[Rfam]
RNA sequence: AUGCAGUGAUGACUUUAAAAUGAACACAUCAUGCUGACAACACCGUGGAUAACCAUAAACACUGAGCAUA
Numbered sequence: 001a002u003g004c005a006g007u008g009a010u011g012a013c014u015u016u017a018a019a020a021u022g023a024a025c026a027c028a029u030c031a032u033g034c035u036g037a038c039a040a041c042a043c044c045g046u047g048g049a050u051a052a053c054c055a056u057a058a059a060c061a062c063u064g065a066g067c068a069u070a
Base pairs, nucleotide, nucleotide: 001069002068003067004066